[Rfam]
RNA: Small nucleolar RNA SNORA72
Organism: Jaculus jaculus
RNA sequence: UUGUGAAUAUUCUCACUGCUCUGAUUUUGUAGUAAUCCAGAUAGGCUAACCAUUCGCUAUAUUAAGACUAUGCGUGUGUCCCCAGACUUAGGUCUUUUCUUUCCCUUGGUCUGCUUUGACGAAUGCUGGUGGGAACC
Numbered sequence: 001u002u003g004u005g006a007a008u009a010u011u012c013u014c015a016c017u018g019c020u021c022u023g024a025u026u027u028u029g030u031a032g033u034a035a036u037c038c039a040g041a042u043a044g045g046c047u048a049a050c051c052a053u054u055c056g057c058u059a060u061a062u063u064a065a066g067a068c069u070a071u072g073c074g075u076g077u078g079u080c081c082c083c084a085g086a087c088u089u090a091g092g093u094c095u096u097u098u099c100u101u102u103c104c105c106u107u108g109g110u111c112u113g114c115u116u117u118g119a120c121g122a123a124u125g126c127u128g129g130u131g132g133g134a135a136c137c
Base pairs, nucleotide, nucleotide: 003057004056005055016044017043018042020040023037024036025035026034067130068129069128070127072126073125083113084112085111086110087109088108090106091105